[Rfam]
RNA: ASdes TB sRNA
RNA sequence: AACUCCACCGGAUCGACCGCACGGGUUACCACCAGGUAGUCACGCAGUGAGAUCCCGUGCCGGUUUUC
Numbered sequence: 001a002a003c004u005c006c007a008c009c010g011g012a013u014c015g016a017c018c019g020c021a022c023g024g025g026u027u028a029c030c031a032c033c034a035g036g037u038a039g040u041c042a043c044g045c046a047g048u049g050a051g052a053u054c055c056c057g058u059g060c061c062g063g064u065u066u067u068c
Stems, first nucleotide, its partner, number of pairs: 004063002008059001011030001013028001015027004035056002038053001040052002043049002